Background: tRNA: a 72-nucleotide sequence from Clostridium cylindrosporum. Pairs were carried over by alignment from the consensus structure, which is taken from published work. Rfam classes the family as a transfer RNA.
[Rfam]
RNA sequence: UGGGUUAUCGCCAAGCGGUAAGGCACGGGACUUUGACUCCCGCACGCGUAGGUUCGAAUCCUACUAGCCCAG
Numbered sequence: 001u002g003g004g005u006u007a008u009c010g011c012c013a014a015g016c017g018g019u020a021a022g023g024c025a026c027g028g029g030a031c032u033u034u035g036a037c038u039c040c041c042g043c044a045c046g047c048g049u050a051g052g053u054u055c056g057a058a059u060c061c062u063a064c065u066a067g068c069c070c071a072g
Base pairs, nucleotide, nucleotide: 001071002070003069004068005067006066007065010024011023012022026042027041028040029039030038048064049063050062051061052060